[Rfam]
RNA sequence: GCCACUCUGAAAAGCGGAUGCGCAGCGCGCGUCCCGCCCACGGUGAAAGCCGGCGACAGCCGGUGAAGCUCUCAGGCUCAUGACAGAGGGGGAGUU
Numbered sequence: 001g002c003c004a005c006u007c008u009g010a011a012a013a014g015c016g017g018a019u020g021c022g023c024a025g026c027g028c029g030c031g032u033c034c035c036g037c038c039c040a041c042g043g044u045g046a047a048a049g050c051c052g053g054c055g056a057c058a059g060c061c062g063g064u065g066a067a068g069c070u071c072u073c074a075g076g077c078u079c080a081u082g083a084c085a086g087a088g089g090g091g092g093a094g095u096u
Base pairs, nucleotide, nucleotide: 002091003090005088006087007086008085009084016034017033018032019031036077037076038075040072043071045069049064050063051062052061
RNA: Glycine riboswitch aptamer